[Rfam]
RNA: mir-130 microRNA precursor family
RNA sequence: UCAGUGGCUGGAGCCCUUUAAACCUGGCCCAGUCAGCACAGAGGGUCCCCCUAGUACUGACUGGGCCAGGUUUAAAGGGCUCCAGCCAUUGA
Numbered sequence: 001u002c003a004g005u006g007g008c009u010g011g012a013g014c015c016c017u018u019u020a021a022a023c024c025u026g027g028c029c030c031a032g033u034c035a036g037c038a039c040a041g042a043g044g045g046u047c048c049c050c051c052u053a054g055u056a057c058u059g060a061c062u063g064g065g066c067c068a069g070g071u072u073u074a075a076a077g078g079g080c081u082c083c084a085g086c087c088a089u090u091g092a
Stems, first nucleotide, its partner, number of pairs: 001092003006087006013080008023070014